Shown here is a 64-nucleotide sequence from Actinomadura macrotermitis, a member of the family "L17-Actino-Proteobacteria ribosomal protein leader". A reference for the family is Eckert and Weinberg (2020), "Discovery of 20 novel ribosomal leader candidates in bacteria and archaea", BMC Microbiol. The family's RNA type in Rfam is cis-regulatory leader. Lineage of the source: Bacteria > Bacillati > Actinomycetes > Thermomonosporaceae > Actinomadura.

RNA sequence: CCCUGGACCGGGCCUUCCGGUCCAGGGUUUCGGCUGACGCCGGUACCUGACACGGCCGGCGCAG
Number, nucleotide and partner (000 for none) at each position: 001c027002c026003c025004u024005g023006g022007a021008c020009c019010g018011g017012g000013c000014c000015u000016u000017c011018c010019g009020g008021u007022c006023c005024a004025g003026g002027g001028u000029u000030u000031c000032g000033g000034c064035u063036g062037a000038c061039g060040c059041c058042g057043g056044u055045a000046c000047c000048u000049g000050a000051c000052a000053c000054g000055g044056c043057c042058g041059g040060c039061g038062c036063a035064g034

About this RNA
The match comes from Rfam's covariance-model search (58 bits).